[Rfam]
RNA sequence: UUGAAGCUCCAUCUACAAACGGAUAAGACUUUGGAUUUAGUGUAUACGGGUUUUUGAAAAUUAAGGAGCAAUACCAACACUCUUGAUAGAACAAGAAAUUGGUUAUUGCUCCUUU
Numbered sequence: 001u002u003g004a005a006g007c008u009c010c011a012u013c014u015a016c017a018a019a020c021g022g023a024u025a026a027g028a029c030u031u032u033g034g035a036u037u038u039a040g041u042g043u044a045u046a047c048g049g050g051u052u053u054u055u056g057a058a059a060a061u062u063a064a065g066g067a068g069c070a071a072u073a074c075c076a077a078c079a080c081u082c083u084u085g086a087u088a089g090a091a092c093a094a095g096a097a098a099u100u101g102g103u104u105a106u107u108g109c110u111c112c113u114u115u
Base pairs, nucleotide, nucleotide: 008023009022010021012019063114064113065112066111067110068109069108070107071106072105073104077100081096082095083094084093
RNA: Plastid-psbA-1 3UTR RNA
Organism: Cajanus cajan